[Rfam]
RNA sequence: UGCGACAAAGGCAAACCCGGCGAAAGCCGGCGACGCAAAGCCACGGGGCUACCUCCGACUCCCCUCUGGGAUCGGUCACGCCAGCCGGGCCGCCGCAC
Numbered sequence: 001u002g003c004g005a006c007a008a009a010g011g012c013a014a015a016c017c018c019g020g021c022g023a024a025a026g027c028c029g030g031c032g033a034c035g036c037a038a039a040g041c042c043a044c045g046g047g048g049c050u051a052c053c054u055c056c057g058a059c060u061c062c063c064c065u066c067u068g069g070g071a072u073c074g075g076u077c078a079c080g081c082c083a084g085c086c087g088g089g090c091c092g093c094c095g096c097a098c
Base pairs, nucleotide, nucleotide: 003095004094011036012035017030018029019028020027021026034084040090041089042088044087045086046085047082048081049080

This 98-nucleotide sequence from Roseisolibacter agri belongs to the Rfam family "c-di-GMP-I-GGC riboswitch aptamer". Lineage of the source: Bacteria > Pseudomonadati > Gemmatimonadota > Gemmatimonadia > Roseisolibacter. The match comes from Rfam's covariance-model search (63 bits).